The record is a 174-nucleotide RNA sequence from Peptoclostridium litorale, which matches "Lysine riboswitch aptamer" in Rfam. It scores 109 bits against the family's covariance model. Pairs were carried over by alignment from the consensus structure, which is taken from published work. Riboswitches are metabolite binding domains within certain messenger RNAs that serve as precision sensors for their corresponding targets.
RNA sequence: ACCUUGUUUAGAGGAGCUUUAAUAAUUAGUAACUUUGUGGAGAUGGCAAUCAGUGAAUCAAAGUGAAAGGGAUUGAAGCCGAAGGCGUGUCCAGUUGCCAACUGGCGUGCCUGGCUGUGUGCAUAAUAUGCAUAUGGCUGUCAUCCUUGUUUUGGAUGGAGAGCUAAAAGGGUU
Numbered sequence: 001a002c003c004u005u006g007u008u009u010a011g012a013g014g015a016g017c018u019u020u021a022a023u024a025a026u027u028a029g030u031a032a033c034u035u036u037g038u039g040g041a042g043a044u045g046g047c048a049a050u051c052a053g054u055g056a057a058u059c060a061a062a063g064u065g066a067a068a069g070g071g072a073u074u075g076a077a078g079c080c081g082a083a084g085g086c087g088u089g090u091c092c093a094g095u096u097g098c099c100a101a102c103u104g105g106c107g108u109g110c111c112u113g114g115c116u117g118u119g120u121g122c123a124u125a126a127u128a129u130g131c132a133u134a135u136g137g138c139u140g141u142c143a144u145c146c147u148u149g150u151u152u153u154g155g156a157u158g159g160a161g162a163g164c165u166a167a168a169a170g171g172g173u174u
Base pairs, nucleotide, nucleotide: 007168008167009166010165011164016079017078018077019076020075021074022073023072032064033063034062035061036060037059083112084111085110086109087108088107089106090105091104093103094102113139114138115137116136117135118134119133120132121131122130123129141159142158143157144156145155146154
Overview: Taxonomically the source falls in Peptoclostridium litorale (Bacteria, Bacillati, Bacillota, Peptoclostridium).